Description:
Rfam assigns this 130-nucleotide RNA from Elachura formosa to the family "Small nucleolar RNA SNORA31". By type it is an H/ACA-box small nucleolar RNA. The family's consensus secondary structure was predicted with RNAalifold.

RNA sequence: AUGCAUCUGUUUGACAGACCUGGAGCACAUGCUGUUGCUUCUCGGGUUCUCUUGAGAUGCAACAGUAACAAGUUCCUUUCGCUUUCUGCCUGUCCAGGUGGCAGUUCGGAUUGAAUAAAGGAACACAUUC
Numbered sequence: 001a002u003g004c005a006u007c008u009g010u011u012u013g014a015c016a017g018a019c020c021u022g023g024a025g026c027a028c029a030u031g032c033u034g035u036u037g038c039u040u041c042u043c044g045g046g047u048u049c050u051c052u053u054g055a056g057a058u059g060c061a062a063c064a065g066u067a068a069c070a071a072g073u074u075c076c077u078u079u080c081g082c083u084u085u086c087u088g089c090c091u092g093u094c095c096a097g098g099u100g101g102c103a104g105u106u107c108g109g110a111u112u113g114a115a116u117a118a119a120g121g122a123a124c125a126c127a128u129u130c
Stems, first nucleotide, its partner, number of pairs: 002061007013051001017048004023040005028034001074122006082113001085110004090104005

For this family Rfam cites "RNomics: an experimental approach that identifies 201 candidates for novel, small, non-messenger RNAs in mouse" (Huttenhofer et al., EMBO J, 2001). Rfam describes the family as follows. ACA31 (SNORA31) belongs to the H/ACA class of snoRNAs which are thought to guide the sites of modification of uridines to pseudouridines. ACA31 is predicted to guide the pseudouridylation of U3713 in 28S rRNA and U218 in 18S rRNA. This family includes the mouse homologue snoMBI-161.